[Rfam]
RNA: Small nucleolar RNA SNORD70
Organism: Catharus fuscescens
Nucleotides: 088
Stems, first nucleotide, its partner, number of pairs: 001088012
Number, partner (000 for none) and nucleotide at each position: 001088c002087c003086a004085u005084c006083u007082g008081u009080u010079g011078c012077c013000a014000a015000u016000g017000a018000u019000g020000a021000a022000a023000c024000a025000u026000a027000c028000u029000u030000u031000a032000a033000c034000u035000g036000a037000a038000a039000u040000u041000a042000a043000u044000g045000a046000u047000g048000u049000a050000a051000u052000u053000c054000a055000g056000u057000u058000c059000c060000u061000u062000c063000g064000u065000c066000a067000c068000u069000a070000c071000c072000a073000c074000u075000g076000a077012g078011g079010c080009a081008a082007c083006a084005g085004a086003u087002g088001g